Rfam assigns this 126-nucleotide sequence from Modicisalibacter muralis to the family "Ribosomal S15 leader". Clan: Ribosomal Protein S15 Leader clan.
RNA sequence: ACGUGGGACUGCAAAUAUGCGUGGUCCCCGACAUUCAUCAUUCAGGCAUAUUGCUUACUGGAGACAUAGAUGGCACUCACCGCUGAGAAGAAGUCCGAAAUCGUCACCGAAUACGGUCGUGGCGAC
Numbered sequence: 001a002c003g004u005g006g007g008a009c010u011g012c013a014a015a016u017a018u019g020c021g022u023g024g025u026c027c028c029c030g031a032c033a034u035u036c037a038u039c040a041u042u043c044a045g046g047c048a049u050a051u052u053g054c055u056u057a058c059u060g061g062a063g064a065c066a067u068a069g070a071u072g073g074c075a076c077u078c079a080c081c082g083c084u085g086a087g088a089a090g091a092a093g094u095c096c097g098a099a100a101u102c103g104u105c106a107c108c109g110a111a112u113a114c115g116g117u118c119g120u121g122g123c124g125a126c
Stems, first nucleotide, its partner, number of pairs: 007026006052079002060077002063074001
Description:
It is annotated as a cis-regulatory leader. From the family's description: The E. coli Ribosomal S15 gene 5' UTR can form two alternative structures. One that is a series of three hairpins, The other includes a pseudoknot. This structure causes translational regulation of the S15 protein. The alignment of this family contains only the final two hairpins which are conserved in other species, and also includes the complete region that forms the alternate structures. The organism belongs to Modicisalibacter, within Bacteria. The family's consensus secondary structure is taken from published work. A search with the family's covariance model found it, with a score of 44 bits.